[Rfam]
Shown here is a 140-nucleotide sequence from Acanthopleuribacter pedis, a member of the family "Group II catalytic intron D1-D4-4". On this family, see Bonen and Vogel, Trends Genet 2001: "The ins and outs of group II introns". Rfam's curators write: Group II introns are found in rRNA, tRNA and mRNA of organelles in fungi, plants and protists, and also in mRNA in bacteria. The family has 90 seed sequences and 840 matches in Rfam 15.1. The match comes from Rfam's covariance-model search (90 bits).
RNA sequence: CAGUGGGUUCAAAUCCCACCCGGGUAACUGACGCUCCGCCCGGAAGCACUUUGGAGCAGUUCAGGAGGCAACGAAUGGGCUGAAGUAUUCAAAGAAAAGGCUCUUUCAGAGAGUCAGCGACUGUACAGGCCGUAGCGUGC
Numbered sequence: 001c002a003g004u005g006g007g008u009u010c011a012a013a014u015c016c017c018a019c020c021c022g023g024g025u026a027a028c029u030g031a032c033g034c035u036c037c038g039c040c041c042g043g044a045a046g047c048a049c050u051u052u053g054g055a056g057c058a059g060u061u062c063a064g065g066a067g068g069c070a071a072c073g074a075a076u077g078g079g080c081u082g083a084a085g086u087a088u089u090c091a092a093a094g095a096a097a098a099g100g101c102u103c104u105u106u107c108a109g110a111g112a113g114u115c116a117g118c119g120a121c122u123g124u125a126c127a128g129g130c131c132g133u134a135g136c137g138u139g140c
Stems, first nucleotide, its partner, number of pairs: 020043005051092005057082006067072001099115006117133003